A member of the RNA family "c-di-AMP riboswitch aptamer (ydaO/yuaA leader)" from Streptomyces resistomycificus, 165 nucleotides long. The source organism's lineage runs through Bacteria, Bacillati, Kitasatosporales, Streptomycetaceae and Streptomyces.
RNA sequence: CAUCGACCAUCACCGCACGGCAGGAGCGGGGGACCCAGGUAAGUCGCCGGACCGGAGAUCACGCCGGUACGGCUGGGGUUAAGUCGCGCCGCCUCACCGCGGUACGGCCGGGCAGCUCCCGCCCGAACCCGACAGCUCACCUCGUAGGCGCCGGAGAGGAACAUC
Numbered sequence: 001c002a003u004c005g006a007c008c009a010u011c012a013c014c015g016c017a018c019g020g021c022a023g024g025a026g027c028g029g030g031g032g033a034c035c036c037a038g039g040u041a042a043g044u045c046g047c048c049g050g051a052c053c054g055g056a057g058a059u060c061a062c063g064c065c066g067g068u069a070c071g072g073c074u075g076g077g078g079u080u081a082a083g084u085c086g087c088g089c090c091g092c093c094u095c096a097c098c099g100c101g102g103u104a105c106g107g108c109c110g111g112g113c114a115g116c117u118c119c120c121g122c123c124c125g126a127a128c129c130c131g132a133c134a135g136c137u138c139a140c141c142u143c144g145u146a147g148g149c150g151c152c153g154g155a156g157a158g159g160a161a162c163a164u165c
Stems, first nucleotide, its partner, number of pairs: 001023001026145006036075002076130003084107003110124004
Dot-bracket structure: (.....................)..((((((....((....................................))(((.....(((..................)))..((((.......))))...))).........))))))....................